[Rfam]
RNA sequence: UGAAGUUUUUCGGGAAAGCGGCAGAUGCCCGCCGAAGGAGUAAUACUCUCAGGCAUCCUGAUAAAGGAUAGGACCGGAAAA
Numbered sequence: 001u002g003a004a005g006u007u008u009u010u011c012g013g014g015a016a017a018g019c020g021g022c023a024g025a026u027g028c029c030c031g032c033c034g035a036a037g038g039a040g041u042a043a044u045a046c047u048c049u050c051a052g053g054c055a056u057c058c059u060g061a062u063a064a065a066g067g068a069u070a071g072g073a074c075c076g077g078a079a080a081a
Stems, first nucleotide, its partner, number of pairs: 006081008020029003031054003034050002038048003
Shown here is an 81-nucleotide RNA sequence from Candidatus Apopatosoma intestinale, a member of the family "Glycine riboswitch aptamer". A search with the family's covariance model found it, with a score of 41 bits. Gene Ontology term of the family: glycine biosynthetic process. The pairing is the family consensus, mapped onto this sequence. NCBI's taxonomy places the organism under Bacteria, Bacillati, Clostridia, Eubacteriales, Candidatus Apopatosoma.